[Rfam]
RNA sequence: GGCUGGUCCGAUGGCAGUGGUUUACCAGAACUUAUUGAUAUUAGUUUCACAACAAGUUAAUAUAUUCCACCCCCACUGCUAAAUUUGACUGGCCUUU
Numbered sequence: 001g002g003c004u005g006g007u008c009c010g011a012u013g014g015c016a017g018u019g020g021u022u023u024a025c026c027a028g029a030a031c032u033u034a035u036u037g038a039u040a041u042u043a044g045u046u047u048c049a050c051a052a053c054a055a056g057u058u059a060a061u062a063u064a065u066u067c068c069a070c071c072c073c074c075a076c077u078g079c080u081a082a083a084u085u086u087g088a089c090u091g092g093c094c095u096u097u
Base pairs, nucleotide, nucleotide: 001094002093003092004091005090006089007088008087010086011085016077017076018075019074020073027061030058
Dot-bracket structure: ((((((((.((....(((((......(..(...........................)..)...........))))).......))))))))))...
The record is a 97-nucleotide sequence from Monodelphis domestica, which matches "Y RNA" in Rfam. Rfam's curators write: Y RNAs are components of the Ro ribonucleoprotein particle (Ro RNP), in association with Ro60 and La proteins. The Y RNAs and Ro60 and La proteins are well conserved, but the function of the Ro RNP is not known. In humans the RNA component can be one of four small RNAs -- hY1, hY3, hY4 and hY5. These small RNAs are predicted to fold into a conserved secondary structure containing three stem structures. The largest of the four, hY1, contains an additional hairpin. This family includes a significant number of annotated pseudogenes and the model is expected to discriminate poorly between real and Y RNA related pseudogenes.